[Rfam]
RNA sequence: AUAAUGAUACUUCAGCUUGGCUUAAUUUAUAUUGAGGGGUUGCUCGGUUGGAUAACGGAGAGGUUUAAAUACCUAUGU
Number, nucleotide and partner (000 for none) at each position: 001a000002u000003a000004a000005u000006g000007a000008u000009a000010c000011u000012u075013c042014a041015g040016c039017u038018u037019g000020g000021c000022u000023u000024a000025a000026u000027u000028u000029a000030u000031a000032u000033u000034g000035a000036g000037g018038g017039g016040u015041u014042g013043c060044u059045c058046g000047g056048u055049u054050g000051g000052a000053u000054a049055a048056c047057g000058g045059a044060g043061a074062g073063g072064u000065u000066u000067a000068a000069a000070u000071a000072c063073c062074u061075a012076u000077g000078u000
pemK RNA: a 78-nucleotide RNA sequence. It is annotated as a cis-regulatory element.